Source information:
A member of the RNA family "LOOT RNA", 120 nucleotides long. The sequence is in the family's curated seed alignment.

[Rfam]
RNA sequence: GGCCUAAACCACAUAGCAUAUGCGGCAUGGCAAAGGAGACCUAUGAAAGCAUUAAGCUCCUCGUCAGAGCGCUUUCAUAGGCUGUCUACCGAAAGGUAGGCAGGUGGCCGCAAGGUCAUC
Numbered sequence: 001g002g003c004c005u006a007a008a009c010c011a012c013a014u015a016g017c018a019u020a021u022g023c024g025g026c027a028u029g030g031c032a033a034a035g036g037a038g039a040c041c042u043a044u045g046a047a048a049g050c051a052u053u054a055a056g057c058u059c060c061u062c063g064u065c066a067g068a069g070c071g072c073u074u075u076c077a078u079a080g081g082c083u084g085u086c087u088a089c090c091g092a093a094a095g096g097u098a099g100g101c102a103g104g105u106g107g108c109c110g111c112a113a114g115g116u117c118a119u120c
Stems, first nucleotide, its partner, number of pairs: 002031003009025002012022004040081011056070004083102008103120006
Annotation: The base pairs follow the family's consensus structure, which is taken from published work. It is annotated as a small RNA.